[Rfam]
A member of the RNA family "SAM riboswitch aptamer (S box leader)", 121 nucleotides long. Rfam's curators write: The SAM riboswitch is found upstream of a number of genes which code for proteins involved in methionine or cysteine biosynthesis in Gram-positive bacteria. The family's consensus secondary structure is taken from published work. A search with the family's covariance model found it, with a score of 61 bits.
RNA sequence: CAUUCAUGGAGAGAGGCGCGAGGGUACGGCCCUGUGACCGCCCGGCAACCUGCCCCGACGUGACGCCGUCGGUCGGGACAAGGUGCCAACACCGACCGUGUAGCGCACGGGAUCAUGAUCG
Numbered sequence: 001c002a003u004u005c006a007u008g009g010a011g012a013g014a015g016g017c018g019c020g021a022g023g024g025u026a027c028g029g030c031c032c033u034g035u036g037a038c039c040g041c042c043c044g045g046c047a048a049c050c051u052g053c054c055c056c057g058a059c060g061u062g063a064c065g066c067c068g069u070c071g072g073u074c075g076g077g078a079c080a081a082g083g084u085g086c087c088a089a090c091a092c093c094g095a096c097c098g099u100g101u102a103g104c105g106c107a108c109g110g111g112a113u114c115a116u117g118a119u120c121g
Stems, first nucleotide, its partner, number of pairs: 001121001004118005013043001015042004022032003027094003044087004049083002053077002091113001096110006